[Rfam]
RNA sequence: AUCUCCCGGGCGCGUUCCUCCUCCCAUUAGCGCUCGCGAGUGUUCCCCUCUGGAGUUUUGCCUUUGAGGCACUCCAACGACUCAGCCGGAUCUUCCUAGAUCCGGCUUUUUU
Dot-bracket structure: (.(((.(((((((................))))))).)))).........((((((..............)))))).......((((((((((....)))))))))).....
The record is a 112-nucleotide RNA sequence from Aerobium aerolatum, which matches "Alphaproteobacterial ar15" in Rfam. The organism belongs to Aerobium aerolatum, within Bacteria. Its Rfam clan is "suhB sRNA clan". Rfam 15.1 lists 316 matches to the family in 177 species. A search with the family's covariance model found it, with a score of 43 bits.